[Rfam]
RNA sequence: GCAUCUAUAGCCCAAUUGGUAGAGGCACUGGAUUUAGGUUCCAGUCAGUGAUGAGUUCGAAUCUCUCUAGAUGUA
Numbered sequence: 001g002c003a004u005c006u007a008u009a010g011c012c013c014a015a016u017u018g019g020u021a022g023a024g025g026c027a028c029u030g031g032a033u034u035u036a037g038g039u040u041c042c043a044g045u046c047a048g049u050g051a052u053g054a055g056u057u058c059g060a061a062u063c064u065c066u067c068u069a070g071a072u073g074u075a
Stems, first nucleotide, its partner, number of pairs: 001074007010026003028044005050067002053065003
RNA: tRNA
Organism: Klebsiella phage vB_KpM_FBKp34